[Rfam]
RNA: Bacterial RNase P class B
RNA sequence: ACGUUCGGGUAAUCGCUGCGAGGUAGCUUCUAAAAAGCGAAUCGUUGAGGAAAGUCCAUGCUCGCACGAGCUGAGAUGCUCGUAGUGUUCGUGCCUAGUGAAUUCAUAAGCUAGGGCAGCUGAGUCUAGCAUUCAGUUGACGGCCGGGAAAAUACCUAAAUCCAUUUGGACAUGGUAUGAAUACCUAUAAAAGUGCCACAGUGACGUAGCCUUUCUGGAAACAGAAAGGGUGGAACGGGUAAACCCCACGAGCGAGAAACCCAAAUUAUGGUAGGGGCGCUUUCUCUGAGGAAUUGAACAAGGAGAAAGACAGAUUCCUAUAGAAUCUGUAGAUAGAUGAUUACCACCUAAGUACGAGACCGAAUGGUCGUUUGCAGUACUAUGGUACAGAACAUGGCUUACAGAA
Numbered sequence: 001a002c003g004u005u006c007g008g009g010u011a012a013u014c015g016c017u018g019c020g021a022g023g024u025a026g027c028u029u030c031u032a033a034a035a036a037g038c039g040a041a042u043c044g045u046u047g048a049g050g051a052a053a054g055u056c057c058a059u060g061c062u063c064g065c066a067c068g069a070g071c072u073g074a075g076a077u078g079c080u081c082g083u084a085g086u087g088u089u090c091g092u093g094c095c096u097a098g099u100g101a102a103u104u105c106a107u108a109a110g111c112u113a114g115g116g117c118a119g120c121u122g123a124g125u126c127u128a129g130c131a132u133u134c135a136g137u138u139g140a141c142g143g144c145c146g147g148g149a150a151a152a153u154a155c156c157u158a159a160a161u162c163c164a165u166u167u168g169g170a171c172a173u174g175g176u177a178u179g180a181a182u183a184c185c186u187a188u189a190a191a192a193g194u195g196c197c198a199c200a201g202u203g204a205c206g207u208a209g210c211c212u213u214u215c216u217g218g219a220a221a222c223a224g225a226a227a228g229g230g231u232g233g234a235a236c237g238g239g240u241a242a243a244c245c246c247c248a249c250g251a252g253c254g255a256g257a258a259a260c261c262c263a264a265a266u267u268a269u270g271g272u273a274g275g276g277g278c279g280c281u282u283u284c285u286c287u288g289a290g291g292a293a294u295u296g297a298a299c300a301a302g303g304a305g306a307a308a309g310a311c312a313g314a315u316u317c318c319u320a321u322a323g324a325a326u327c328u329g330u331a332g333a334u335a336g337a338u339g340a341u342u343a344c345c346a347c348c349u350a351a352g353u354a355c356g357a358g359a360c361c362g363a364a365u366g367g368u369c370g371u372u373u374g375c376a377g378u379a380c381u382a383u384g385g386u387a388c389a390g391a392a393c394a395u396g397g398c399u400u401a402c403a404g405a406a
Stems, first nucleotide, its partner, number of pairs: 004406003007402001008345007016047001018045004052400003056397005061256005066083006089251005094115006116141001117139009142246002146186003153177004161170002193244002195240003210229008260276003280309007310330008347385002351381005
Dot-bracket structure: ...(((((((((((.(.((((....................)))).)....[[[.[[[[[(((((((((((......)))))).....(((((((((((..........))))))((((((((((.....))))))))).)((..(((....((((....((......))...))))......)))......(((((............((((((((....))))))))........)))..))))))))))))))...(((...........)))...(((((((................)))))))((((((((.....))))))))........))))))).((..(((((.....................)))))..)).......]]]]]]]].).)))